[Rfam]
RNA sequence: GUGACACUCAAAAAAUGGCGGCACUUCCCUACUCAGAACAGAAAGUGCCCCCACAGUUUGAGUUGCAC
Numbered sequence: 001g002u003g004a005c006a007c008u009c010a011a012a013a014a015a016u017g018g019c020g021g022c023a024c025u026u027c028c029c030u031a032c033u034c035a036g037a038a039c040a041g042a043a044a045g046u047g048c049c050c051c052c053a054c055a056g057u058u059u060g061a062g063u064u065g066c067a068c
Stems, first nucleotide, its partner, number of pairs: 005065002007062006016053003020049007028041001

This 68-nucleotide RNA sequence from Neogale vison belongs to the Rfam family "mir-290 microRNA precursor family".
The match comes from Rfam's covariance-model search (51 bits).
Pairs were carried over by alignment from the consensus structure, which was predicted with RNAalifold.